[Rfam]
RNA sequence: UAACACGAGGAAAAAGCCAUACCCUAUUAUCUUAUUAACGAUAAGAUAAUAGGGUAUGGCUUUUUCCCCGUGUUU
Numbered sequence: 001u002a003a004c005a006c007g008a009g010g011a012a013a014a015a016g017c018c019a020u021a022c023c024c025u026a027u028u029a030u031c032u033u034a035u036u037a038a039c040g041a042u043a044a045g046a047u048a049a050u051a052g053g054g055u056a057u058g059g060c061u062u063u064u065u066c067c068c069c070g071u072g073u074u075u
Base pairs, nucleotide, nucleotide: 003073004072005071006070007069009067010066011065013063014062017059018058019057020056021055024052025051026050027049028048029047
A member of the RNA family "mir-965 microRNA precursor family" from Lactuca saligna, 75 nucleotides long.
Gene Ontology terms of the family: miRNA-mediated post-transcriptional gene silencing and RISC complex.
It scores 44 bits against the family's covariance model.
Pairs were carried over by alignment from the consensus structure, which was predicted with RNAalifold.
Taxonomically the source falls in Lactuca (Eukaryota, Streptophyta, Magnoliopsida, Asteraceae).
On this family, see Huang et al., Bioorg Khim 2012: "The regulation of silkworm fibroin L chain production by miRNA-965 and miRNA-1926 in insect cells".